RNA sequence: UGUGGAUCAGCCCGACCCCCCGGGGCUGAUACACGACGACCUCCGCCUCCUCCCCCCUGGCGGGGGUCGUCCCUU
Numbered sequence: 001u002g003u004g005g006a007u008c009a010g011c012c013c014g015a016c017c018c019c020c021c022g023g024g025g026c027u028g029a030u031a032c033a034c035g036a037c038g039a040c041c042u043c044c045g046c047c048u049c050c051u052c053c054c055c056c057c058u059g060g061c062g063g064g065g066g067u068c069g070u071c072c073c074u075u
Base pairs, nucleotide, nucleotide: 002034003033004032006030007029008028009027010026011025012024013023035071036070037069038068039067040066041065042064043063044062045061046060047059
The family of this 75-nucleotide RNA sequence from Mycolicibacterium madagascariense is "6C RNA". A reference for the family is Weinberg et al. (2007), "Identification of 22 candidate structured RNAs in bacteria using the CMfinder comparative genomics pipeline", Nucleic Acids Res. Gene Ontology term of the family: sporulation. The base pairs follow the family's consensus structure, which is taken from published work. Taxonomically the source falls in Mycobacterium (subgen. Mycolicibacterium) (Bacteria, Mycobacteriales, Mycobacteriaceae, Mycobacterium).